[Rfam]
RNA sequence: GCCAAGGCUUAUCAAGAGCUUGGCGGAUCGGGCGCCGGCGGGUGUCCGGCGUCCUCAUGUCCAUGUUGCUCAAUGGAGAAUAUGGCGAUGAGAU
Numbered sequence: 001g002c003c004a005a006g007g008c009u010u011a012u013c014a015a016g017a018g019c020u021u022g023g024c025g026g027a028u029c030g031g032g033c034g035c036c037g038g039c040g041g042g043u044g045u046c047c048g049g050c051g052u053c054c055u056c057a058u059g060u061c062c063a064u065g066u067u068g069c070u071c072a073a074u075g076g077a078g079a080a081u082a083u084g085g086c087g088a089u090g091a092g093a094u
Stems, first nucleotide, its partner, number of pairs: 001024006008018002031053008054092005061085007069078003
A member of the RNA family "Repression of heat shock gene expression (ROSE) element" from Microvirga tunisiensis, 94 nucleotides long. Rfam's curators write: This family represents a 5' UTR cis-regulatory element found in heat shock mRNAs and is known as the ROSE (repression of heat shock gene expression) element. The ROSE element is a negative regulator of heat shock gene expression. The secondary structure is thought to be regulated by temperature. This regulation blocks access to the ribosome binding site under normal conditions. The family's RNA type in Rfam is RNA thermoregulator. The family's consensus secondary structure is taken from published work. Rfam links the family to the GO terms regulation of translation and response to temperature stimulus.